[Rfam]
RNA sequence: ACUUUGUGAAAGACAUGGGUAGUGAGAUGUUUACUAAAACAUCACCUUACUACCCUGUCUUUUGCGGAGUG
Numbered sequence: 001a002c003u004u005u006g007u008g009a010a011a012g013a014c015a016u017g018g019g020u021a022g023u024g025a026g027a028u029g030u031u032u033a034c035u036a037a038a039a040c041a042u043c044a045c046c047u048u049a050c051u052a053c054c055c056u057g058u059c060u061u062u063u064g065c066g067g068a069g070u071g
Stems, first nucleotide, its partner, number of pairs: 008063008017055003021051006028044002

The record is a 71-nucleotide RNA sequence from Mizuhopecten yessoensis, which matches "mir-71 microRNA precursor family" in Rfam. For this family Rfam cites "Direct sequencing and expression analysis of a large number of miRNAs in Aedes aegypti and a multi-species survey of novel mosquito miRNAs" (Li et al., BMC Genomics, 2009). Rfam 15.1 lists 372 matches to the family in 291 species.